[Rfam]
RNA sequence: GCAGGCACAAGUCUGGCCAUAGCAGAAGUGCCCAUGAUGCAGUCUGUCAAAUUCUAUCAAAUCUGCAAAUUCUGCU
Number, nucleotide and partner (000 for none) at each position: 001g000002c000003a000004g000005g000006c000007a000008c000009a000010a000011g000012u000013c000014u000015g044016g043017c042018c000019a000020u000021a076022g075023c074024a073025g072026a071027a070028g040029u039030g038031c000032c000033c000034a000035u000036g000037a000038u030039g029040c028041a000042g017043u016044c015045u000046g000047u000048c065049a064050a000051a062052u061053u060054c000055u000056a000057u000058c000059a000060a053061a052062u051063c000064u049065g048066c000067a000068a000069a000070u027071u026072c025073u024074g023075c022076u021